RNA sequence: AUAUCCGAAAGACACCGAAACAGACACGCCUCCUAAAUGUCUGCGAUGCAUUCGACUCUGAGAAUUCCUCGCCUGUAAAUGUAUGCAGGUGAGGAGUUUCAGGUAGAGAAA
Number, nucleotide and partner (000 for none) at each position: 001a000002u000003a000004u000005c000006c017007g016008a000009a000010a000011g000012a000013c000014a000015c000016c007017g006018a000019a000020a000021c043022a042023g041024a040025c000026a000027c000028g000029c000030c000031u000032c000033c000034u000035a000036a000037a000038u000039g000040u024041c023042u022043g021044c000045g000046a000047u000048g000049c000050a000051u109052u108053c000054g104055a000056c000057u000058c102059u101060g100061a000062g099063a098064a097065u096066u095067c094068c093069u000070c091071g090072c089073c088074u087075g086076u085077a000078a000079a000080u000081g000082u000083a000084u000085g076086c075087a074088g073089g072090u071091g070092a000093g068094g067095a066096g065097u064098u063099u062100c060101a059102g058103g000104u054105a000106g000107a000108g052109a051110a000111a000

Archaeal Small RNA 41: a 111-nucleotide RNA sequence from Methanosarcina acetivorans. Rfam links the family to the GO terms mRNA 5'-UTR binding and sRNA-mediated gene silencing. NCBI's taxonomy places the organism under Archaea, Methanobacteriota, Methanomicrobia, Methanosarcinaceae, Methanosarcina acetivorans.